[Rfam]
RNA sequence: CAGAUACAGUGAUGAUGGCAUAGUUCAGCAGAAUGUCCUGUGUUGAGCACUUUUCUUUCGCUCCUAUCUGAUGUGUCUG
Numbered sequence: 001c002a003g004a005u006a007c008a009g010u011g012a013u014g015a016u017g018g019c020a021u022a023g024u025u026c027a028g029c030a031g032a033a034u035g036u037c038c039u040g041u042g043u044u045g046a047g048c049a050c051u052u053u054u055c056u057u058u059c060g061c062u063c064c065u066a067u068c069u070g071a072u073g074u075g076u077c078u079g
Stems, first nucleotide, its partner, number of pairs: 004076005

Rfam assigns this 79-nucleotide RNA from Halcyon senegalensis to the family "Small nucleolar RNA snR60/Z15/Z230/Z193/J17". Rfam classes the family as a C/D-box small nucleolar RNA. The pairing is the family consensus, mapped onto this sequence. The family has 23 seed sequences and 3,592 matches in Rfam 15.1. On this family, see Qu et al., Nucleic Acids Res 2001: "Identification of 10 novel snoRNA gene clusters from Arabidopsis thaliana". Its family is annotated with RNA processing and nucleolus in the Gene Ontology. A search with the family's covariance model found it, with a score of 51 bits. NCBI's taxonomy places the organism under Eukaryota, Amniota, Coelurosauria, Coraciimorphae, Halcyon.